Overview: Alphaproteobacteria transfer-messenger RNA: a 344-nucleotide RNA sequence from Alterirhizorhabdus solaris. A search with the family's covariance model found it, with a score of 228 bits.

[Rfam]
RNA sequence: GGGCUUUCCAAACGCCGGCACCGGGUCUAUAUCGUUCGGUGCCGGGUUCGCCCGGCUAUGGUGAUAAAUCAUGUCGCAUAAUAGACGCAGCGGACCCGGGGGCAGUACCCGGCGGCUCCACCACAAGCCUCGGCAACGAGGUUUAUGACGGGGCCGAACCAGGAUCGACGUGUGUUCAAAGGCGAUGUCUUUGCCCGGCCUGAUUGAGCCGUAAAACCGAUCAAAACCACAAGUGCUAACGAUAACGAAGCACUCGCGAUUGCUGCGUAACUGACGCCCUUCGGGGAGUAGGUUACAAGGCUUAAGCGCGGUUCGGGCCGAACCGGGCAACAGAAUCGGACACC
Dot-bracket structure: ........................................(((((......)))))...(((((......(((((((........(((.(((...(((((.......)))))(((((((..............................)))))))............)))))).......)))))))..)))))((((.[[[.[..))))........]]]].....................................................................................((((..[..[.[.))))..........].]..]...